[Rfam]
RNA sequence: UGUAAGAAAGGGCAAAGCUACUGAAAAAUGGUGACGCAAAACUAUAGGGGCUAAGGUAUUGGAUACUAUGUCAGCCAGUUGCCGAA
Numbered sequence: 001u002g003u004a005a006g007a008a009a010g011g012g013c014a015a016a017g018c019u020a021c022u023g024a025a026a027a028a029u030g031g032u033g034a035c036g037c038a039a040a041a042c043u044a045u046a047g048g049g050g051c052u053a054a055g056g057u058a059u060u061g062g063a064u065a066c067u068a069u070g071u072c073a074g075c076c077a078g079u080u081g082c083c084g085a086a
Stems, first nucleotide, its partner, number of pairs: 012037002017032004022027001040080004047076002049072003056066004